[Rfam]
RNA sequence: CUCGAUCUUCAGGGCAGGGUGAAAUUCCCGACCGGCGGUGACAGUCCGCGAGUUGCUCCAAUGUUUGGAGCAAUAGGAUGCAGUGAAAUUCUGCAACCGACAGUAAAGUCUGGAUGAGAGAAGAUGGAU
Numbered sequence: 001c002u003c004g005a006u007c008u009u010c011a012g013g014g015c016a017g018g019g020u021g022a023a024a025u026u027c028c029c030g031a032c033c034g035g036c037g038g039u040g041a042c043a044g045u046c047c048g049c050g051a052g053u054u055g056c057u058c059c060a061a062u063g064u065u066u067g068g069a070g071c072a073a074u075a076g077g078a079u080g081c082a083g084u085g086a087a088a089u090u091c092u093g094c095a096a097c098c099g100a101c102a103g104u105a106a107a108g109u110c111u112g113g114a115u116g117a118g119a120g121a122a123g124a125u126g127g128a129u
Base pairs, nucleotide, nucleotide: 003127005125006124007123008122009121010120017029018028019027031109032108033099034098035049036048037047038046044097045096054073079095080094081093082092083091101112102111103110
The record is a 129-nucleotide RNA from Pontiella sulfatireligans, which matches "FMN riboswitch aptamer (RFN element)" in Rfam.